RNA: Small nucleolar RNA U3
Organism: Pogona vitticeps
RNA sequence: AAGACUAUACUUUCAGGGAUCAUUUCUAUAGUCCGCUACUAGAGAAGUGCAUCCGAAAGUGAACGGCCGAGCGAACCACGAGGAGGAGGCAAAGUGUUCUCUUCUGAGCGCGAAGCUGGCGGGCGAUGCUGCUUCCCGGCGGCUGUCGCCUGCCCUUGAUGACCGUUCCGCCUCCUCCUCGCGAGGAGGCCGGAGGGAGAGAACACAGGCUGAGUGGU
Numbered sequence: 001a002a003g004a005c006u007a008u009a010c011u012u013u014c015a016g017g018g019a020u021c022a023u024u025u026c027u028a029u030a031g032u033c034c035g036c037u038a039c040u041a042g043a044g045a046a047g048u049g050c051a052u053c054c055g056a057a058a059g060u061g062a063a064c065g066g067c068c069g070a071g072c073g074a075a076c077c078a079c080g081a082g083g084a085g086g087a088g089g090c091a092a093a094g095u096g097u098u099c100u101c102u103u104c105u106g107a108g109c110g111c112g113a114a115g116c117u118g119g120c121g122g123g124c125g126a127u128g129c130u131g132c133u134u135c136c137c138g139g140c141g142g143c144u145g146u147c148g149c150c151u152g153c154c155c156u157u158g159a160u161g162a163c164c165g166u167u168c169c170g171c172c173u174c175c176u177c178c179u180c181g182c183g184a185g186g187a188g189g190c191c192g193g194a195g196g197g198a199g200a201g202a203a204c205a206c207a208g209g210c211u212g213a214g215u216g217g218u
Base pairs, nucleotide, nucleotide: 002040003039006035009032010031011030015027016026017025018024049064053061075218076217077216078215079214094206095205096204097203098202099201100200101199102198103197104196105195108166109165110164118154119153120152121151124148125147126146127145128143129142130141131140132139169192170191171189172188173187174186175185176184177183